[Rfam]
RNA sequence: UUGUUAUACAGGCAGAGAUGCGCUGUAUAUCAGGGGUGCCGAAUUAACGUUUAAGCGUCAUGCAAUGGCGUCGGUCCCUGAGAAAUGGGCCGCCCUAAUCGGCGGCCCAUUUGCGCUCAG
Numbered sequence: 001u002u003g004u005u006a007u008a009c010a011g012g013c014a015g016a017g018a019u020g021c022g023c024u025g026u027a028u029a030u031c032a033g034g035g036g037u038g039c040c041g042a043a044u045u046a047a048c049g050u051u052u053a054a055g056c057g058u059c060a061u062g063c064a065a066u067g068g069c070g071u072c073g074g075u076c077c078c079u080g081a082g083a084a085a086u087g088g089g090c091c092g093c094c095c096u097a098a099u100c101g102g103c104g105g106c107c108c109a110u111u112u113g114c115g116c117u118c119a120g
Stems, first nucleotide, its partner, number of pairs: 007027005012021003030081006038075004042051003055071006085110010
RNA: DUF3800-I RNA
Organism: Bifidobacterium subtile